[Rfam]
RNA sequence: CCCUUAACUAUUAAAAGUUUCGUUUUGGUCCUUUAACUUACUUUUUGGUUUCGUUUUGGUCCCUUAACUUAUUUUUUGGUUUCAUUUUGGUCCCUUAACUCUAAUACAUUCAUCCUAACAUAAAGGACCAAAGUGGUUGACAGAGGAUGAGUUAAGGGACCAAAAAGUAAGUUAAAGGACCAAAACGAAACUUUUAAUAGUUAAGGUA
Numbered sequence: 001c002c003c004u005u006a007a008c009u010a011u012u013a014a015a016a017g018u019u020u021c022g023u024u025u026u027g028g029u030c031c032u033u034u035a036a037c038u039u040a041c042u043u044u045u046u047g048g049u050u051u052c053g054u055u056u057u058g059g060u061c062c063c064u065u066a067a068c069u070u071a072u073u074u075u076u077u078g079g080u081u082u083c084a085u086u087u088u089g090g091u092c093c094c095u096u097a098a099c100u101c102u103a104a105u106a107c108a109u110u111c112a113u114c115c116u117a118a119c120a121u122a123a124a125g126g127a128c129c130a131a132a133g134u135g136g137u138u139g140a141c142a143g144a145g146g147a148u149g150a151g152u153u154a155a156g157g158g159a160c161c162a163a164a165a166a167g168u169a170a171g172u173u174a175a176a177g178g179a180c181c182a183a184a185a186c187g188a189a190a191c192u193u194u195u196a197a198u199a200g201u202u203a204a205g206g207u208a
Base pairs, nucleotide, nucleotide: 002206003205004204005203006202007201008200023185024184025183027181028180029179031177032176033175034174035173036172037171038170039169040168041167042166043165045163046162047161
Source information: A member of the RNA family "MIR2655 microRNA precursor family" from Medicago truncatula, 208 nucleotides long. NCBI's taxonomy places the organism under Eukaryota, Embryophyta, fabids, Trifolieae, Medicago.